[Rfam]
RNA: mir-223 microRNA precursor family
RNA sequence: GUGAGCGUACGGGUCCUUACACUCAGUGUAUUUGACAAGCUGAGCUUGACACUCAUCCUGAUGGGAGUGUCAGUUUGUCAAAUACCCCAAGUGUGAGGUCACUUGUC
Numbered sequence: 001g002u003g004a005g006c007g008u009a010c011g012g013g014u015c016c017u018u019a020c021a022c023u024c025a026g027u028g029u030a031u032u033u034g035a036c037a038a039g040c041u042g043a044g045c046u047u048g049a050c051a052c053u054c055a056u057c058c059u060g061a062u063g064g065g066a067g068u069g070u071c072a073g074u075u076u077g078u079c080a081a082a083u084a085c086c087c088c089a090a091g092u093g094u095g096a097g098g099u100c101a102c103u104u105g106u107c
Stems, first nucleotide, its partner, number of pairs: 020093004026087001028085014048071004053066002